[Rfam]
RNA sequence: AACCGCUCCCACGGGAGCCCGGCGGACCGGGCUGAGAGGGAGGCUGUCCGGCCUCCGACCGUAUGAACCUGAUCCGGGUCAUGCCGGCGAAGGGAGGAGUCGCAUGGGCCCA
Numbered sequence: 001a002a003c004c005g006c007u008c009c010c011a012c013g014g015g016a017g018c019c020c021g022g023c024g025g026a027c028c029g030g031g032c033u034g035a036g037a038g039g040g041a042g043g044c045u046g047u048c049c050g051g052c053c054u055c056c057g058a059c060c061g062u063a064u065g066a067a068c069c070u071g072a073u074c075c076g077g078g079u080c081a082u083g084c085c086g087g088c089g090a091a092g093g094g095a096g097g098a099g100u101c102g103c104a105u106g107g108g109c110c111c112a
Base pairs, nucleotide, nucleotide: 007099009097010096011062012061013060014059017032018031019030020029021028039056040055041054042053043052044051045050068093069092070091074087075086076085077084
The record is a 112-nucleotide sequence from Streptomyces sp. 8K308, which matches "TPP riboswitch aptamer (THI element)" in Rfam. Taxonomically the source falls in Streptomyces (Bacteria, Actinomycetota, Kitasatosporales, Streptomycetaceae). The match comes from Rfam's covariance-model search (65 bits).